[Rfam]
RNA sequence: AUCCUUACCUGACAGGAGAGAUACCAUGAUCACGAAGGUGGUUUUUCCAGUGCAAGGCUGAUCCAUUGCACUCCAGAUGUGCUGAUCCCUGCAAUUUCCUCAAAUUCUGGAAAUUCAACUGCAUAAUUUGUGGUAGUUAGGGACUGUGUUCGUGCUCUCCCCGG
Numbered sequence: 001a002u003c004c005u006u007a008c009c010u011g012a013c014a015g016g017a018g019a020g021a022u023a024c025c026a027u028g029a030u031c032a033c034g035a036a037g038g039u040g041g042u043u044u045u046u047c048c049a050g051u052g053c054a055a056g057g058c059u060g061a062u063c064c065a066u067u068g069c070a071c072u073c074c075a076g077a078u079g080u081g082c083u084g085a086u087c088c089c090u091g092c093a094a095u096u097u098c099c100u101c102a103a104a105u106u107c108u109g110g111a112a113a114u115u116c117a118a119c120u121g122c123a124u125a126a127u128u129u130g131u132g133g134u135a136g137u138u139a140g141g142g143a144c145u146g147u148g149u150u151c152g153u154g155c156u157c158u159c160c161c162c163g164g
Stems, first nucleotide, its partner, number of pairs: 013121003016048001018046004023042005049090002052087001054086001056083003061078003094115001095113003099109001138163001140161004146155003

U1 spliceosomal RNA: a 164-nucleotide RNA from Cavia porcellus.
Taxonomically the source falls in Cavia (Eukaryota, Bilateria, Boreoeutheria, Euarchontoglires).
A search with the family's covariance model found it, with a score of 106 bits.
U1 is a small nuclear RNA (snRNA) component of the spliceosome (involved in pre-mRNA splicing). Its 5' end forms complementary base pairs with the 5' splice junction, thus defining the 5' donor site of an intron. There are significant differences in sequence and secondary structure between metazoan and yeast U1 snRNAs, the latter being much longer (568 nucleotides as compared to 164 nucleotides in human). Nevertheless, secondary structure predictions suggest that all U1 snRNAs share a 'common core' consisting of helices I, II, the proximal region of III, and IV. This family does not contain the larger yeast sequences.
A reference for the family is Zwieb (1997), "The uRNA database", Nucleic Acids Res.
It is annotated as a spliceosomal small nuclear RNA.
Clan: U1 clan.